[Rfam]
RNA: azaaromatic riboswitch aptamer (yjdF RNA)
Organism: Enterococcus pallens
RNA sequence: AAAAGCGAGCAUAAAAACACGAGGCGGUUGGUAGUCCGCCGCAUGAAAAUGUCAGUAGCCUUCCCUCCCGGGUCGUCCAUUGCUCGAUCAUCCAAA
Number, nucleotide and partner (000 for none) at each position: 001a000002a000003a000004a088005g000006c086007g085008a084009g083010c082011a081012u000013a000014a000015a000016a000017a000018c000019a000020c000021g000022a000023g040024g039025c038026g037027g036028u000029u000030g000031g000032u000033a000034g000035u000036c027037c026038g025039c024040c023041g052042c051043a050044u049045g000046a000047a000048a000049a044050u043051g042052u041053c000054a000055g000056u000057a000058g000059c000060c000061u000062u000063c072064c071065c070066u000067c000068c000069c000070g065071g064072g063073u000074c000075g000076u000077c000078c000079a000080u000081u011082g010083c009084u008085c007086g006087a000088u004089c000090a000091u000092c000093c000094a000095a000096a000